[Rfam]
RNA: U1 spliceosomal RNA
Organism: Momordica charantia
RNA sequence: GCACUUACCUGGACCGGGUGUUUGGGCGAUCAGCAAGUUCCAUGGCUUGGUUAGUGAUCGCCAUUGCACUUUGGAGGGGUGCUCGCCUAAGGUCUGUCCAACGUGGCAGAGCCUACGUCAUAAUUUGUGGUAGAGGGGGCCUGAGUCCGCGCAGCCCCUAU
Numbered sequence: 001g002c003a004c005u006u007a008c009c010u011g012g013a014c015c016g017g018g019u020g021u022u023u024g025g026g027c028g029a030u031c032a033g034c035a036a037g038u039u040c041c042a043u044g045g046c047u048u049g050g051u052u053a054g055u056g057a058u059c060g061c062c063a064u065u066g067c068a069c070u071u072u073g074g075a076g077g078g079g080u081g082c083u084c085g086c087c088u089a090a091g092g093u094c095u096g097u098c099c100a101a102c103g104u105g106g107c108a109g110a111g112c113c114u115a116c117g118u119c120a121u122a123a124u125u126u127g128u129g130g131u132a133g134a135g136g137g138g139g140c141c142u143g144a145g146u147c148c149g150c151g152c153a154g155c156c157c158c159u160a161u
Base pairs, nucleotide, nucleotide: 012119013118014117016048017047018046019045023042024041025040026039049087050086052085054082055081056080058078059077061074062073090114091113092112093110094109095108097106098105135159136158137157138156142153143152145150